[Rfam]
RNA sequence: UUGUUGAAAGGAAAUGGUGCUAUUCCUUACCCAACCGCCCUAAAAAAGCUGAUGACGCCUGAUUAGAC
Numbered sequence: 001u002u003g004u005u006g007a008a009a010g011g012a013a014a015u016g017g018u019g020c021u022a023u024u025c026c027u028u029a030c031c032c033a034a035c036c037g038c039c040c041u042a043a044a045a046a047a048g049c050u051g052a053u054g055a056c057g058c059c060u061g062a063u064u065a066g067a068c
Stems, first nucleotide, its partner, number of pairs: 010026004016059004021054001037049002
The family of this 68-nucleotide sequence from Pedobacter sp. is "Fluoride riboswitch aptamer (crcB RNA motif)".
Rfam links the family to the GO terms positive regulation of gene expression and response to fluoride.